Rfam assigns this 136-nucleotide RNA from Streptomyces aidingensis to the family "Glycine riboswitch aptamer".

[Rfam]
RNA sequence: CGACCGCGCGCGGGAGAGUCCCCGGCCCCGGACACCCCUCGGACCGCCAUGGCCCGGCGGACGUCCGGCACCGCCGGGGCGCCGAAGGAGCAAGUCCUCCCUUGAAUCUCUCAGGCCCACCCACCGCGUACGGAAG
Numbered sequence: 001c002g003a004c005c006g007c008g009c010g011c012g013g014g015a016g017a018g019u020c021c022c023c024g025g026c027c028c029c030g031g032a033c034a035c036c037c038c039u040c041g042g043a044c045c046g047c048c049a050u051g052g053c054c055c056g057g058c059g060g061a062c063g064u065c066c067g068g069c070a071c072c073g074c075c076g077g078g079g080c081g082c083c084g085a086a087g088g089a090g091c092a093a094g095u096c097c098u099c100c101c102u103u104g105a106a107u108c109u110c111u112c113a114g115g116c117c118c119a120c121c122c123a124c125c126g127c128g129u130a131c132g133g134a135a136g
Stems, first nucleotide, its partner, number of pairs: 006131001008129006020079007081116003084112002088110003094103001

Its family is annotated with glycine biosynthetic process in the Gene Ontology. Lineage of the source: Bacteria > Actinomycetes > Kitasatosporales > Streptomycetaceae > Streptomyces.